Overview: The family of this 76-nucleotide RNA from Crocodylus porosus is "Mammalian CPEB3 ribozyme".
RNA sequence: GUUGCAAAUUUGAGGCUGUAGCAGAAGCACUUACAGUGCAGCCGUGUCAGAUUCCAGCAAAUCUGUGAAUUCUGGU
Numbered sequence: 001g002u003u004g005c006a007a008a009u010u011u012g013a014g015g016c017u018g019u020a021g022c023a024g025a026a027g028c029a030c031u032u033a034c035a036g037u038g039c040a041g042c043c044g045u046g047u048c049a050g051a052u053u054c055c056a057g058c059a060a061a062u063c064u065g066u067g068a069a070u071u072c073u074g075g076u
Stems, first nucleotide, its partner, number of pairs: 014043004020076001022074005027039003048065006

A search with the family's covariance model found it, with a score of 46 bits.